[Rfam]
RNA sequence: AAGGCGGUAUCCUGCAUUUAGGAACUGCACUUUCUGAGAAGGAAAGAUUAACGUAUUAAUCUGCCUAGAUCCAUAAAGGACCGGGACAGAGGG
Numbered sequence: 001a002a003g004g005c006g007g008u009a010u011c012c013u014g015c016a017u018u019u020a021g022g023a024a025c026u027g028c029a030c031u032u033u034c035u036g037a038g039a040a041g042g043a044a045a046g047a048u049u050a051a052c053g054u055a056u057u058a059a060u061c062u063g064c065c066u067a068g069a070u071c072c073a074u075a076a077a078g079g080a081c082c083g084g085g086a087c088a089g090a091g092g093g
Stems, first nucleotide, its partner, number of pairs: 001032003004028005010023004061089003064085003068081001070080003
RNA: pan motif